This 82-nucleotide RNA sequence from Drosophila grimshawi belongs to the Rfam family "mir-315 microRNA precursor family". The literature on the family includes a 2007 paper in Genome Res by Stark et al., "Systematic discovery and characterization of fly microRNAs using 12 Drosophila genomes".

[Rfam]
RNA sequence: CGCUCAUAUAAUUUUGAUUGUUGCUCAGAAAGCCUUUCACUUGACACUUGGCUUUCGAGUAAUAAUCGAAACCAAAUAAGCG
Numbered sequence: 001c002g003c004u005c006a007u008a009u010a011a012u013u014u015u016g017a018u019u020g021u022u023g024c025u026c027a028g029a030a031a032g033c034c035u036u037u038c039a040c041u042u043g044a045c046a047c048u049u050g051g052c053u054u055u056c057g058a059g060u061a062a063u064a065a066u067c068g069a070a071a072c073c074a075a076a077u078a079a080g081c082g
Stems, first nucleotide, its partner, number of pairs: 001082004006077002012071007020063007028056007
Dot-bracket structure: ((((.((....(((((((.(((((((.(((((((...............)))))))))))))).)))))))....)).))))